Rfam assigns this 84-nucleotide RNA sequence from Hymenochirus boettgeri to the family "Small nucleolar RNA SNORD60". On this family, see Galardi et al., Mol Cell Biol 2002: "Purified box C/D snoRNPs are able to reproduce site-specific 2'-O-methylation of target RNA in vitro". Clan: SNORD60 clan. Rfam links the family to the GO terms RNA processing and nucleolus. A search with the family's covariance model found it, with a score of 44 bits. The family's consensus secondary structure was predicted with PFOLD.
RNA sequence: UGCCAGUGAUGUACCCUAAAUUCUGACACCUCUUAUGAACCUGCCACAGAGCAGCUUCUGAUUCUGUACUUCGGGCUGAGGCAA
Dot-bracket structure: ((((....................................((((......)))).........................)))).